Annotation
The record is a 160-nucleotide sequence from [Clostridium] symbiosum, which matches "RT-14 RNA" in Rfam. It is annotated as a small RNA. The source organism's lineage runs through Bacteria, Bacillota, Lachnospirales, Lachnospiraceae and [Clostridium] symbiosum.
RNA sequence: UUUUCUCUCAUAGCCAGAUAUUCGGGGCUCAAGGGCUUCGUCUCAGAGCAGAGAGACGAAAAGGGCUUGUCUCCGUGCCGAUCGGGAAGGUCGGCAAAAAAUAAAACCUCAUGGAAGCCGUUAGUAGCUCAGGGAGCAGCUCCCCGGGCGAACGCCGUGA
Numbered sequence: 001u002u003u004u005c006u007c008u009c010a011u012a013g014c015c016a017g018a019u020a021u022u023c024g025g026g027g028c029u030c031a032a033g034g035g036c037u038u039c040g041u042c043u044c045a046g047a048g049c050a051g052a053g054a055g056a057c058g059a060a061a062a063g064g065g066c067u068u069g070u071c072u073c074c075g076u077g078c079c080g081a082u083c084g085g086g087a088a089g090g091u092c093g094g095c096a097a098a099a100a101a102u103a104a105a106a107c108c109u110c111a112u113g114g115a116a117g118c119c120g121u122u123a124g125u126a127g128c129u130c131a132g133g134g135a136g137c138a139g140c141u142c143c144c145c146g147g148g149c150g151a152a153c154g155c156c157g158u159g160a
Base pairs, nucleotide, nucleotide: 004056005055006054007053008052009051013049014048020043023040024039025038026037027036028035029034077095078094079093080092081091082090083089117158118157120155121154127149128148129147130146